RNA sequence: CAAUCAGAUAGAGGAGCGGAAGCGACAAAGUUAAUUGGAGUCGGCGGGCAUUUGACAGUUAGCUGAAGCAAUUUCGCCGAACUACAACUUUUGGCAAGAAGUUGUGGUGGGUUUAUGGAGAACAUCCAUAAAACUGUCUACAGUCGUAGGAGUGCUAUCUUAUUG
Numbered sequence: 001c002a003a004u005c006a007g008a009u010a011g012a013g014g015a016g017c018g019g020a021a022g023c024g025a026c027a028a029a030g031u032u033a034a035u036u037g038g039a040g041u042c043g044g045c046g047g048g049c050a051u052u053u054g055a056c057a058g059u060u061a062g063c064u065g066a067a068g069c070a071a072u073u074u075c076g077c078c079g080a081a082c083u084a085c086a087a088c089u090u091u092u093g094g095c096a097a098g099a100a101g102u103u104g105u106g107g108u109g110g111g112u113u114u115a116u117g118g119a120g121a122a123c124a125u126c127c128a129u130a131a132a133a134c135u136g137u138c139u140a141c142a143g144u145c146g147u148a149g150g151a152g153u154g155c156u157a158u159c160u161u162a163u164u165g
Base pairs, nucleotide, nucleotide: 006160007159008158009157010156011155016077017076018075019074020073021072024069030063031062032061033060034059035058036057037056081108082107083106084105085104086103087102088101089100090099091098092097109135110134112132113131114130115129116128117127118126119125137150138149139148140147141146
This 165-nucleotide RNA sequence from Erysipelotrichaceae bacterium 5_2_54FAA belongs to the Rfam family "Lysine riboswitch aptamer". Lineage of the source: Bacteria > Bacillota > Erysipelotrichia > Erysipelotrichales > Erysipelotrichaceae. A search with the family's covariance model found it, with a score of 86 bits. The base pairs follow the family's consensus structure, which is taken from published work. A reference for the family is Grundy et al. (2003), "The L box regulon: Lysine sensing by leader RNAs of bacterial lysine biosynthesis genes", Proc Natl Acad Sci U S A.